[Rfam]
A member of the RNA family "Small nucleolar RNA SNORA57" from Ditylenchus dipsaci, 143 nucleotides long. A reference for the family is Vitali et al. (2003), "Identification of 13 novel human modification guide RNAs", Nucleic Acids Res. Rfam 15.1 lists 1,736 matches to the family in 530 species. The family's RNA type in Rfam is H/ACA-box small nucleolar RNA. About the family: U99 belongs to the H/ACA class of snoRNAs which are thought to guide the sites of modification of uridines to pseudouridines, the target for this family is unknown.
RNA sequence: ACUCUCUUCUUGGCACUCCUUGGCUAGAUAUGCUUAGAAGUGUAUGCUUAUAGAGAGUCAAAGAAAAUGGCAUCAUCCACAGAGCCUUCGGUGCUGAAACUUGAUUAGUGGUUUCAGUUCUAUCCUCAACUCUCGGAACAUUU
Numbered sequence: 001a002c003u004c005u006c007u008u009c010u011u012g013g014c015a016c017u018c019c020u021u022g023g024c025u026a027g028a029u030a031u032g033c034u035u036a037g038a039a040g041u042g043u044a045u046g047c048u049u050a051u052a053g054a055g056a057g058u059c060a061a062a063g064a065a066a067a068u069g070g071c072a073u074c075a076u077c078c079a080c081a082g083a084g085c086c087u088u089c090g091g092u093g094c095u096g097a098a099a100c101u102u103g104a105u106u107a108g109u110g111g112u113u114u115c116a117g118u119u120c121u122a123u124c125c126u127c128a129a130c131u132c133u134c135g136g137a138a139c140a141u142u143u
Stems, first nucleotide, its partner, number of pairs: 001058005014042004019037001022034003080135001082132001094117007
Dot-bracket structure: (((((........((((.(..(((.......)))..).))))...........))))).....................(.(...........(((((((..........)))))))..............)..)........